[Rfam]
RNA sequence: AGCGCGUUCUGCGGGAGCCCCGGACGGGGCUGAGAGGGCUUGAGCGCCGACCGCCACACCUGAUGCGGGUCAUGCCGCCGUAGGAAAGGACAGCCGGUGGACA
Numbered sequence: 001a002g003c004g005c006g007u008u009c010u011g012c013g014g015g016a017g018c019c020c021c022g023g024a025c026g027g028g029g030c031u032g033a034g035a036g037g038g039c040u041u042g043a044g045c046g047c048c049g050a051c052c053g054c055c056a057c058a059c060c061u062g063a064u065g066c067g068g069g070u071c072a073u074g075c076c077g078c079c080g081u082a083g084g085a086a087a088g089g090a091c092a093g094c095c096g097g098u099g100g101a102c103a
Base pairs, nucleotide, nucleotide: 006091007090008089009088010087011054012053013052014051017030018029019028020027021026037048038047039046059084060083061082062081065078066077067076068075

Rfam assigns this 103-nucleotide RNA sequence from Kocuria flava to the family "TPP riboswitch aptamer (THI element)". It scores 62 bits against the family's covariance model. The family has 115 seed sequences and 16,130 matches in Rfam 15.1. The source organism's lineage runs through Bacteria, Actinomycetota, Actinomycetes, Micrococcales and Kocuria.